[Rfam]
Notes
Shown here is a 173-nucleotide RNA sequence from Brevibacillus panacihumi, a member of the family "Group II catalytic intron D1-D4-3". The pairing is the family consensus, mapped onto this sequence.
RNA sequence: UCGACCGUGAGGUCGAAUCUGAAGGAAGCCAGCGGCAAAGUCCCGACCUGAGGUACACGAACCCAAUUUGAGGCUGUUGUAUUCGGGCGAGUCUGCCAUACAAGACAAAGCCCCAUACAGCCAAGGGAUGCAGCAGUAAACUUGGGCAGGUACAUGGGAUGAAAGUUAUCGUU
Numbered sequence: 001u002c003g004a005c006c007g008u009g010a011g012g013u014c015g016a017a018u019c020u021g022a023a024g025g026a027a028g029c030c031a032g033c034g035g036c037a038a039a040g041u042c043c044c045g046a047c048c049u050g051a052g053g054u055a056c057a058c059g060a061a062c063c064c065a066a067u068u069u070g071a072g073g074c075u076g077u078u079g080u081a082u083u084c085g086g087g088c089g090a091g092u093c094u095g096c097c098a099u100a101c102a103a104g105a106c107a108a109a110g111c112c113c114c115a116u117a118c119a120g121c122c123a124a125g126g127g128a129u130g131c132a133g134c135a136g137u138a139a140a141c142u143u144g145g146g147c148a149g150g151u152a153c154a155u156g157g158g159a160u161g162a163a164a165g166u167u168a169u170c171g172u173u
Base pairs, nucleotide, nucleotide: 001016002015003014004013005012006011028173030171032169035166036165040160041159042158043157044156045155046151047150048149049148050147062146063145064144065143066142067140073137074136075135077133078132079131080130081129082128083127085113086112087111088110091106092105093104094103